[Rfam]
RNA sequence: CUGCACUAGGCGGGGCGGUAGCGGUGCCCUCUUCCUGCAAUCCGCUAUAGCAGGGCUGAAUUCCGGUUGGGAGGUGCGGCAUCUGGAUGCUUGCAGUUAACAGGCCGGUGAUGAGAGAUUGGUACUGUGCAACGUGGGACUGUGAACCAUGUCAGGCGGGGAACCGAGCAGCAUUAAACAGAACCCUGCGUGUGCCACAGGUUUGCCGAUUUUGAACGGGCUUGGUAAAAAGGCUGUCCGGAUGUUCGUUUCGAUCUUCUGGUGUGCGG
Number, nucleotide and partner (000 for none) at each position: 001c269002u268003g267004c266005a265006c264007u000008a000009g057010g056011c055012g030013g029014g028015g027016c026017g025018g000019u023020a000021g000022c000023g019024g000025u017026g016027c015028c014029c013030u012031c000032u000033u000034c054035c053036u052037g051038c050039a000040a000041u000042c000043c000044g000045c000046u000047a000048u000049a000050g038051c037052a036053g035054g034055g011056c010057u009058g000059a000060a000061u000062u000063c262064c261065g260066g259067u000068u000069g256070g000071g252072a251073g250074g249075u248076g247077c000078g000079g245080c244081a243082u242083c241084u240085g239086g238087a237088u000089g000090c000091u231092u230093g000094c000095a000096g000097u228098u227099a226100a000101c224102a000103g000104g221105c220106c000107g000108g217109u216110g000111a000112u000113g000114a000115g213116a212117g211118a210119u209120u208121g207122g206123u205124a000125c200126u199127g198128u197129g196130c192131a191132a000133c190134g189135u188136g187137g186138g000139a000140c181141u180142g179143u178144g000145a000146a000147c000148c000149a174150u173151g172152u171153c000154a000155g000156g000157c166158g165159g164160g000161g000162a000163a000164c159165c158166g157167a000168g000169c000170a000171g152172c151173a150174u149175u000176a000177a000178a143179c142180a141181g140182a000183a000184c000185c000186c137187u136188g135189c134190g133191u131192g130193u000194g000195c000196c129197a128198c127199a126200g125201g000202u000203u000204u000205g123206c122207c121208g120209a119210u118211u117212u116213u115214g000215a000216a109217c108218g000219g000220g105221c104222u000223u000224g101225g000226u099227a098228a097229a000230a092231a091232g000233g000234c000235u000236g000237u087238c086239c085240g084241g083242a082243u081244g080245u079246u000247c076248g075249u074250u073251u072252c071253g000254a000255u000256c069257u000258u000259c066260u065261g064262g063263u000264g006265u005266g004267c003268g002269g001